[Rfam]
RNA sequence: UCGUGCUAAGCGGGGCGUUAGCGGUGCCUUGUAACCUGCAAUCCGCUGUAGCAGGGUGGAAGCUCGCAUUGAGGGCCGAUCUUGUGGGGUCUGCCCCUGGUAAGUGGUGUUGACAAUUGGGUCUUGCGCAACGAAAACCUAUAAACCCCGCCAGGUCCGGAAGGAAGCAACGGUAAGUAGGCCCUUUCGUGUGCCGCAGGGUAGCCUGGUUCGAGCUAACUGCCAGGGUAACGCUCGGAAGAUUGUGUUCGAAGGCGAGUGCACGG
Numbered sequence: 001u002c003g004u005g006c007u008a009a010g011c012g013g014g015g016c017g018u019u020a021g022c023g024g025u026g027c028c029u030u031g032u033a034a035c036c037u038g039c040a041a042u043c044c045g046c047u048g049u050a051g052c053a054g055g056g057u058g059g060a061a062g063c064u065c066g067c068a069u070u071g072a073g074g075g076c077c078g079a080u081c082u083u084g085u086g087g088g089g090u091c092u093g094c095c096c097c098u099g100g101u102a103a104g105u106g107g108u109g110u111u112g113a114c115a116a117u118u119g120g121g122u123c124u125u126g127c128g129c130a131a132c133g134a135a136a137a138c139c140u141a142u143a144a145a146c147c148c149c150g151c152c153a154g155g156u157c158c159g160g161a162a163g164g165a166a167g168c169a170a171c172g173g174u175a176a177g178u179a180g181g182c183c184c185u186u187u188c189g190u191g192u193g194c195c196g197c198a199g200g201g202u203a204g205c206c207u208g209g210u211u212c213g214a215g216c217u218a219a220c221u222g223c224c225a226g227g228g229u230a231a232c233g234c235u236c237g238g239a240a241g242a243u244u245g246u247g248u249u250c251g252a253a254g255g256c257g258a259g260u261g262c263a264c265g266g
Stems, first nucleotide, its partner, number of pairs: 001266006010057002012030008035055005064259001065257003069253002073250004079243005085237004092230002096227006104220002106217003115211008123200006129191002132189005138181005148173003156165003

The record is a 266-nucleotide RNA sequence from Heliophilum fasciatum, which matches "Bacterial large signal recognition particle RNA" in Rfam. Rfam classes the family as a non-coding RNA gene. A reference for the family is Rosenblad et al. (2009), "Kinship in the SRP RNA family", RNA Biol. Its family is annotated with signal recognition particle, plasma membrane targeting and SRP-dependent cotranslational protein targeting to membrane, signal sequence recognition in the Gene Ontology. The base pairs follow the family's consensus structure, which is taken from published work.